[Rfam]
RNA sequence: GGCGAUAAACGCCGUGUGGAAUAAGCGUUACGGACCCGGGGGCAGUGCCCGGCGUCUCCACCAAUUUCCCGCCCAGGAUCGUGGGGCGCGUGUGGGGACGAAACAGCUUCGACGUGCGCGGUAAAGACACGGUUUUUGCCCGGCAUUGUACCGCCGUUAUCGGGCUAAAUCACAAGUGCCAACGAUAACAGCCGUGAGGCUGUGGCGCUCGCUGCCUAA
Numbered sequence: 001g002g003c004g005a006u007a008a009a010c011g012c013c014g015u016g017u018g019g020a021a022u023a024a025g026c027g028u029u030a031c032g033g034a035c036c037c038g039g040g041g042g043c044a045g046u047g048c049c050c051g052g053c054g055u056c057u058c059c060a061c062c063a064a065u066u067u068c069c070c071g072c073c074c075a076g077g078a079u080c081g082u083g084g085g086g087c088g089c090g091u092g093u094g095g096g097g098a099c100g101a102a103a104c105a106g107c108u109u110c111g112a113c114g115u116g117c118g119c120g121g122u123a124a125a126g127a128c129a130c131g132g133u134u135u136u137u138g139c140c141c142g143g144c145a146u147u148g149u150a151c152c153g154c155c156g157u158u159a160u161c162g163g164g165c166u167a168a169a170u171c172a173c174a175a176g177u178g179c180c181a182a183c184g185a186u187a188a189c190a191g192c193c194g195u196g197a198g199g200c201u202g203u204g205g206c207g208c209u210c211g212c213u214g215c216c217u218a219a
Stems, first nucleotide, its partner, number of pairs: 001140005014130004026118003030115003036052005053100009141156004

The family of this 219-nucleotide sequence from Rhodovarius crocodyli is "permuted transfer-messenger RNA". A search with the family's covariance model found it, with a score of 153 bits. Bacterial tmRNA, also known as 10Sa RNA or SsrA, is named for its dual tRNA and mRNA-like properties. Lineage of the source: Bacteria > Pseudomonadati > Pseudomonadota > Acetobacterales > Rhodovarius.